Overview:
The record is a 99-nucleotide RNA sequence from Ziziphus jujuba, which matches "MIR403 microRNA precursor family" in Rfam. Rfam 15.1 lists 215 matches to the family in 108 species. The organism belongs to Ziziphus jujuba, within Eukaryota. On this family, see Mica et al., BMC Genomics 2009: "High throughput approaches reveal splicing of primary microRNA transcripts and tissue specific expression of mature microRNAs in Vitis vinifera". Rfam links the family to the GO terms miRNA-mediated post-transcriptional gene silencing and RISC complex.
RNA sequence: ACACAUCUCAAGUUUGUGCGUGAAUCAAACUCCCCAUCAAGCCCCGUCACGAGGCCAAUCGGACGGUGUUAGAUUCACGCACAAACUCGCGAUCUGUCU
Numbered sequence: 001a002c003a004c005a006u007c008u009c010a011a012g013u014u015u016g017u018g019c020g021u022g023a024a025u026c027a028a029a030c031u032c033c034c035c036a037u038c039a040a041g042c043c044c045c046g047u048c049a050c051g052a053g054g055c056c057a058a059u060c061g062g063a064c065g066g067u068g069u070u071a072g073a074u075u076c077a078c079g080c081a082c083a084a085a086c087u088c089g090c091g092a093u094c095u096g097u098c099u
Stems, first nucleotide, its partner, number of pairs: 001097003005093003011087016028070003032066002041056001043054001